[Rfam]
RNA sequence: CUCUAUGGUGACCGUGGCUUUAGAUUGUUACUGUAGCGACAACACGUGGUAACAGUCUACAGCCAUGGUCGUCACGCGACA
Numbered sequence: 001c002u003c004u005a006u007g008g009u010g011a012c013c014g015u016g017g018c019u020u021u022a023g024a025u026u027g028u029u030a031c032u033g034u035a036g037c038g039a040c041a042a043c044a045c046g047u048g049g050u051a052a053c054a055g056u057c058u059a060c061a062g063c064c065a066u067g068g069u070c071g072u073c074a075c076g077c078g079a080c081a
Stems, first nucleotide, its partner, number of pairs: 012068002015065004023057010